[Rfam]
RNA sequence: UCGGUUCCGGUUCACGUUUGAGAUCAGGUCAGGAUCUCGGACGACCCGGCGGCC
Numbered sequence: 001u002c003g004g005u006u007c008c009g010g011u012u013c014a015c016g017u018u019u020g021a022g023a024u025c026a027g028g029u030c031a032g033g034a035u036c037u038c039g040g041a042c043g044a045c046c047c048g049g050c051g052g053c054c
Stems, first nucleotide, its partner, number of pairs: 003054003007049004015043011
RNA: L31-Actinobacteria ribosomal protein leader
Organism: Mycobacterium sp. Root135